The family of this 85-nucleotide RNA sequence from Deinococcus aquatilis is "c-di-GMP-II-GAG riboswitch aptamer". Taxonomically the source falls in Deinococcus aquatilis (Bacteria, Deinococci, Deinococcaceae, Deinococcus). The literature on the family includes a 2017 paper in Proc Natl Acad Sci U S A by Weinberg et al., "Bioinformatic analysis of riboswitch structures uncovers variant classes with altered ligand specificity".
Nucleotides: 085
Stems, first nucleotide, its partner, number of pairs: 003083006011075001013060003022054008038072002040068005
Number, partner (000 for none) and nucleotide at each position: 001000c002000u003083g004082a005081c006080u007079g008078a009000g010000u011075g012000a013060g014059g015058c016000g017000a018000c019000g020000a021000c022054a023053c024052c025051u026050g027049u028048u029047c030000u031000g032000u033000a034000a035000u036000c037000c038072g039071g040068g041067c042066a043065c044064c045000u046000c047029g048028a049027a050026c051025a052024g053023g054022u055000c056000g057000a058015g059014c060013c061000a062000g063000u064044g065043g066042u067041g068040c069000g070000a071039c072038c073000g074000u075011c076000u077000a078008u079007c080006a081005g082004u083003c084000c085000c